The record is an 80-nucleotide sequence from Medicago truncatula, which matches "MIR5269 microRNA precursor family" in Rfam. The family has 2 seed sequences and 389 matches in Rfam 15.1. It scores 63 bits against the family's covariance model. Gene Ontology terms of the family: miRNA-mediated post-transcriptional gene silencing and RISC complex.
Nucleotides: 080
Stems, first nucleotide, its partner, number of pairs: 001080002004077015024057002026054007
Number, partner (000 for none) and nucleotide at each position: 001080u002079u003000u004077g005076a006075u007074g008073a009072a010071a011070u012069u013068a014067a015066u016065g017064u018063g019000g020000a021000u022000c023000c024057c025056a026054a027053a028052c029051u030050u031049u032048g033000u034000g035000a036000a037000u038000g039000g040000a041000u042000c043000c044000c045000a046000a047000a048032u049031a050030a051029a052028g053027u054026u055000a056025u057024g058000a059000a060000a061000u062000c063018u064017a065016c066015a067014u068013u069012g070011a071010u072009u073008u074007c075006a076005u077004c078000c079002a080001a